[Rfam]
RNA sequence: GAGGGUAGUUUAGUAUCGUGUCGUUCAAAAGAUGACAUGGCUGGUGACGAGCCGCUACCUUCCUUAUCCGUAAACCAACUUUGGAAUUGCAAUGUCCAAAACAUUAAAAUUAACAAAGGAGAAGUGCUCGUCAGUUGUGUGUGACAGGUCACUACAUAGUCGUGAGAUGUUCACGGCCGUGAAGGGUCCCAAGCCCGACAUGAGUUUCGAGAAAGUUCUCUAAUCCCGCAAGGAUAAAUUGGUGGGGCACCAUCGAAGAGUGAUAAGUACCGAGAGAGUUGCAGACAACUUAAGGAUUGGUUAAUCUAAUUGACCGUGACUGAGGGUUACCGUUCAAAAGACGGUGGAAACGAAGGGAAUCAAAUAAUCCUUCCAAAGAUCCUCACAAAAUGGUGUAUUCUCAACCU
Number, nucleotide and partner (000 for none) at each position: 001g062002a061003g060004g059005g058006u057007a056008g055009u054010u044011u043012a042013g041014u040015a000016u000017c039018g038019u037020g036021u035022c034023g033024u032025u031026c000027a000028a000029a000030a000031g025032a024033u023034g022035a021036c020037a019038u018039g017040g014041c013042u012043g011044g010045u000046g132047a131048c130049g129050a128051g127052c126053c000054g009055c008056u007057a006058c005059c004060u003061u002062c001063c000064u000065u000066a000067u000068c000069c000070g000071u000072a000073a000074a000075c000076c000077a000078a000079c000080u000081u000082u000083g000084g000085a000086a000087u000088u000089g000090c000091a000092a000093u000094g000095u000096c000097c000098a000099a000100a000101a000102c000103a000104u000105u000106a000107a000108a000109a000110u000111u000112a000113a000114c000115a000116a000117a000118g190119g189120a000121g000122a000123a000124g000125u000126g052127c051128u050129c049130g048131u047132c046133a290134g289135u288136u287137g286138u285139g000140u283141g282142u281143g000144a000145c000146a000147g000148g320149u319150c318151a317152c316153u000154a000155c000156a000157u000158a000159g177160u176161c175162g174163u173164g172165a000166g000167a000168u000169g000170u000171u000172c164173a163174c162175g161176g160177c159178c202179g201180u200181g199182a000183a000184g196185g195186g194187u193188c000189c119190c118191a000192a000193g187194c186195c185196c184197g000198a000199c181200a180201u179202g178203a000204g000205u275206u274207u273208c272209g271210a000211g000212a000213a000214a000215g000216u000217u000218c260219u259220c258221u257222a000223a235224u234225c233226c232227c000228g000229c000230a000231a000232g226233g225234a224235u223236a000237a000238a000239u256240u255241g254242g000243u252244g251245g000246g000247g000248c000249a000250c000251c244252a243253u000254c241255g240256a239257a221258g220259a219260g218261u000262g000263a000264u000265a000266a000267g000268u000269a000270c000271c209272g208273a207274g206275a205276g000277a000278g000279u000280u000281g142282c141283a140284g000285a138286c137287a136288a135289c134290u133291u000292a000293a000294g000295g000296a000297u000298u000299g315300g314301u313302u312303a311304a310305u000306c000307u000308a000309a000310u304311u303312g302313a301314c300315c299316g152317u151318g150319a149320c148321u000322g384323a383324g382325g381326g380327u379328u346329a345330c344331c343332g342333u341334u340335c000336a000337a000338a000339a000340g334341a333342c332343g331344g330345u329346g328347g400348a399349a398350a000351c000352g373353a372354a371355g370356g369357g368358a000359a000360u000361c000362a000363a000364a000365u000366a000367a000368u357369c356370c355371u354372u353373c352374c000375a000376a000377a000378g000379a327380u326381c325382c324383u323384c322385a000386c000387a000388a000389a000390a000391u000392g406393g405394u404395g000396u000397a000398u349399u348400c347401u000402c000403a000404a394405c393406c392407u000
RNA: Giant, ornate, lake- and Lactobacillales-derived (GOLLD) RNA